[Rfam]
RNA: Small nucleolar RNA SNORA17
Organism: Terrapene triunguis
RNA sequence: CCUGCCCCUGGUUUUACAAUGUGGCUACCGUGUGCCAUCUUUGCUCAUUGGGUGGCAGAGAGCGAGGGGCUAUGUCUGCACUCUGUGCUCUGAAACCCAUGAGCACUCAGAAUGAUUAAUAGCCUGACAUC
Numbered sequence: 001c002c003u004g005c006c007c008c009u010g011g012u013u014u015u016a017c018a019a020u021g022u023g024g025c026u027a028c029c030g031u032g033u034g035c036c037a038u039c040u041u042u043g044c045u046c047a048u049u050g051g052g053u054g055g056c057a058g059a060g061a062g063c064g065a066g067g068g069g070c071u072a073u074g075u076c077u078g079c080a081c082u083c084u085g086u087g088c089u090c091u092g093a094a095a096c097c098c099a100u101g102a103g104c105a106c107u108c109a110g111a112a113u114g115a116u117u118a119a120u121a122g123c124c125u126g127a128c129a130u131c
Stems, first nucleotide, its partner, number of pairs: 002058005007052003010046002017043003021038005064128001067125007079114002082111004086105005